The family of this 588-nucleotide part of an RNA from Anaerococcus lactolyticus is "Bacterial large subunit ribosomal RNA". The source organism's lineage runs through Bacteria, Bacillota, Peptoniphilaceae, Anaerococcus and Anaerococcus lactolyticus.
RNA sequence: CCCACGCUAGGACGGAAAGACCCCGUGGAGCUUUACUGUAGGCUGAUAUUGGACUUUGAGAUUAGAUAUACAGGAUAGUUGGGAGACUAUGAAGCAUGUACGCCAGUAUGUGCAGAGUCACCCUUGGGAUACCAACUUUCUAAUAUUAAAGUUCUAACAUUGACCCUUGAAUCAGGGCAAUGGACAUUGUCAGUUGGGCAGUUUGACUGGGGCGGUCGCCUCCCAAAAAGUAACGGAGGCGUUCAAAGGUUCGCUCAGAAUGGACGGAAACCAUUCGUAGAGUACAAAGGCAAAAGCGAGCUUAACUGCAAAACCUACAAGUUGCGCAGAGUAGAAAUACGGACUUAGUGAUCCGGUGGCACCGCAUGGAAGGGCCAUCGCUCAACGGAUAAAAGCUACCCCGGGGAUAACAGGCUUAUCUCCCCCAAGAGUCCACAUCGACGGGGAGGUUUGGCACCUCGAUGUCGGCUCGUCUCAUCCUGGGGCUGAAGUAGGUCCCAAGGGUUGGGCUGUUCGCCCAUUAAAGAGGCACGCGAGCUGGGUUCAGAACGUCGUGAGACAGUUCGGUCCCUAUCCAGCGUGGGCGUA
Numbered sequence: 001c002c003c004a005c006g007c008u009a010g011g012a013c014g015g016a017a018a019g020a021c022c023c024c025g026u027g028g029a030g031c032u033u034u035a036c037u038g039u040a041g042g043c044u045g046a047u048a049u050u051g052g053a054c055u056u057u058g059a060g061a062u063u064a065g066a067u068a069u070a071c072a073g074g075a076u077a078g079u080u081g082g083g084a085g086a087c088u089a090u091g092a093a094g095c096a097u098g099u100a101c102g103c104c105a106g107u108a109u110g111u112g113c114a115g116a117g118u119c120a121c122c123c124u125u126g127g128g129a130u131a132c133c134a135a136c137u138u139u140c141u142a143a144u145a146u147u148a149a150a151g152u153u154c155u156a157a158c159a160u161u162g163a164c165c166c167u168u169g170a171a172u173c174a175g176g177g178c179a180a181u182g183g184a185c186a187u188u189g190u191c192a193g194u195u196g197g198g199c200a201g202u203u204u205g206a207c208u209g210g211g212g213c214g215g216u217c218g219c220c221u222c223c224c225a226a227a228a229a230g231u232a233a234c235g236g237a238g239g240c241g242u243u244c245a246a247a248g249g250u251u252c253g254c255u256c257a258g259a260a261u262g263g264a265c266g267g268a269a270a271c272c273a274u275u276c277g278u279a280g281a282g283u284a285c286a287a288a289g290g291c292a293a294a295a296g297c298g299a300g301c302u303u304a305a306c307u308g309c310a311a312a313a314c315c316u317a318c319a320a321g322u323u324g325c326g327c328a329g330a331g332u333a334g335a336a337a338u339a340c341g342g343a344c345u346u347a348g349u350g351a352u353c354c355g356g357u358g359g360c361a362c363c364g365c366a367u368g369g370a371a372g373g374g375c376c377a378u379c380g381c382u383c384a385a386c387g388g389a390u391a392a393a394a395g396c397u398a399c400c401c402c403g404g405g406g407a408u409a410a411c412a413g414g415c416u417u418a419u420c421u422c423c424c425c426c427a428a429g430a431g432u433c434c435a436c437a438u439c440g441a442c443g444g445g446g447a448g449g450u451u452u453g454g455c456a457c458c459u460c461g462a463u464g465u466c467g468g469c470u471c472g473u474c475u476c477a478u479c480c481u482g483g484g485g486c487u488g489a490a491g492u493a494g495g496u497c498c499c500a501a502g503g504g505u506u507g508g509g510c511u512g513u514u515c516g517c518c519c520a521u522u523a524a525a526g527a528g529g530c531a532c533g534c535g536a537g538c539u540g541g542g543u544u545c546a547g548a549a550c551g552u553c554g555u556g557a558g559a560c561a562g563u564u565c566g567g568u569c570c571c572u573a574u575c576c577a578g579c580g581u582g583g584g585c586g587u588a
Base pairs, nucleotide, nucleotide: 001584002583003582004581005580006579007578008577010576011575012574014571015570022405023404024403025402027401028400029397030396031395032394033393035202036201037200038199042194043193044192045191046190047189048188051154052153053152054151055150056149057148058147059146061144062143063142064141065140066139068137078136079135080134081133082132085119086118087117094113095112096111097110098109099108100107101106158182159181160180164177165176166175167174205217206216207215208214218240219239220238221237222236223235241386243343244342249301250300251299252298253297254296255281256280258276259275260274261273262272263271282291283290306329307328308327309326312323313322314321331340332339333338354380355379356378357377358376359375360374362373363372414455415454416453418452419449420448421447422446423445424444425443429439430438466541467539468538469537470536471533472530473529474528475527476526479504480503482499483498484497485496486495487494506520507519508518509517510516547565548564549563550562551560552559553558